[Rfam]
RNA sequence: CGUUUUUGGUCACCCAGAUUGAUAAAUGUGAACAACGUUUGUCAAUACUUUCUUCAAAAUGUCUCUUGAAGAAUCCCAUCACCUUUGGGGAGCUGUGGCAGGCCCCUCAAAGUGAAUUUGGAGGUUCUACACCA
Numbered sequence: 001c002g003u004u005u006u007u008g009g010u011c012a013c014c015c016a017g018a019u020u021g022a023u024a025a026a027u028g029u030g031a032a033c034a035a036c037g038u039u040u041g042u043c044a045a046u047a048c049u050u051u052c053u054u055c056a057a058a059a060u061g062u063c064u065c066u067u068g069a070a071g072a073a074u075c076c077c078a079u080c081a082c083c084u085u086u087g088g089g090g091a092g093c094u095g096u097g098g099c100a101g102g103c104c105c106c107u108c109a110a111a112g113u114g115a116a117u118u119u120g121g122a123g124g125u126u127c128u129a130c131a132c133c134a
Base pairs, nucleotide, nucleotide: 004059005058006057007056008055009054019045020044021043022042023041024040025039026038027037028036071127072126073125074124075123077121083112084111085110086109087108088107089106090105092103093102
Dot-bracket structure: ...((((((.........((((((((((.......))))))))))........))))))...........(((((.(.....((((((((.((........)).))))))))........).))))).......